Notes
This 82-nucleotide sequence from Elstera litoralis belongs to the Rfam family "tRNA". A search with the family's covariance model found it, with a score of 57 bits. Pairs were carried over by alignment from the consensus structure, which is taken from published work. Rfam classes the family as a transfer RNA.
[Rfam]
RNA sequence: GCGGGCGUGGUGAAACUGGUAGACGCGCUGGACUCAAAAUCCAGUUCCGAGAGGAGUGUCGGUUCGAUUCCGACCGCCCGCA
Numbered sequence: 001g002c003g004g005g006c007g008u009g010g011u012g013a014a015a016c017u018g019g020u021a022g023a024c025g026c027g028c029u030g031g032a033c034u035c036a037a038a039a040u041c042c043a044g045u046u047c048c049g050a051g052a053g054g055a056g057u058g059u060c061g062g063u064u065c066g067a068u069u070c071c072g073a074c075c076g077c078c079c080g081c082a
Stems, first nucleotide, its partner, number of pairs: 001081007010026003028044005058074005